Shown here is a 113-nucleotide sequence, a member of the family "SAM-I/IV (S-adenosyl methionine) riboswitch aptamer". Rfam's curators put it in the seed alignment. The base pairs follow the family's consensus structure, which is taken from published work. The family is grouped with related families in Rfam's "SAM clan".
RNA sequence: CUUCAGCAUCACGAGUGACCGGGAAACCGGUCCGGCAACCGGGGUUGGUCCACGGUGCCAGCUCAAUCGGCAACGGUUGGGGAUGUGGCGGGAAACCGCAACGGGCCCGGUCC
Numbered sequence: 001c002u003u004c005a006g007c008a009u010c011a012c013g014a015g016u017g018a019c020c021g022g023g024a025a026a027c028c029g030g031u032c033c034g035g036c037a038a039c040c041g042g043g044g045u046u047g048g049u050c051c052a053c054g055g056u057g058c059c060a061g062c063u064c065a066a067u068c069g070g071c072a073a074c075g076g077u078u079g080g081g082g083a084u085g086u087g088g089c090g091g092g093a094a095a096c097c098g099c100a101a102c103g104g105g106c107c108c109g110g111u112c113c
Stems, first nucleotide, its partner, number of pairs: 006086005015033001017032005034059003039055003042051003088099004